[Rfam]
The record is a 45-nucleotide RNA sequence from Danio rerio, which matches "Histone 3' UTR stem-loop" in Rfam. The family's consensus secondary structure is taken from published work. The family's RNA type in Rfam is cis-regulatory element.

RNA sequence: AAAACGGCUCUUCUAAGAGCCACCCACAUUUUCUAAGAAAAAGAG
Numbered sequence: 001a002a003a004a005c006g007g008c009u010c011u012u013c014u015a016a017g018a019g020c021c022a023c024c025c026a027c028a029u030u031u032u033c034u035a036a037g038a039a040a041a042a043g044a045g
Stems, first nucleotide, its partner, number of pairs: 006021006
Dot-bracket structure: .....((((((....))))))........................